[Rfam]
RNA sequence: UCCGCAGCGGUCACGACAGAACGCAUCAAUCUUUCGCCUUUUACUAAAGAUUGCCGUGUCGUUUCCGCAUCAAAUGCGACUUUCCUAAUUUUUGUGGCGUUUCGACGCCA
Numbered sequence: 001u002c003c004g005c006a007g008c009g010g011u012c013a014c015g016a017c018a019g020a021a022c023g024c025a026u027c028a029a030u031c032u033u034u035c036g037c038c039u040u041u042u043a044c045u046a047a048a049g050a051u052u053g054c055c056g057u058g059u060c061g062u063u064u065c066c067g068c069a070u071c072a073a074a075u076g077c078g079a080c081u082u083u084c085c086u087a088a089u090u091u092u093u094g095u096g097g098c099g100u101u102u103c104g105a106c107g108c109c110a
Stems, first nucleotide, its partner, number of pairs: 003078004008067003013062006027053008097108004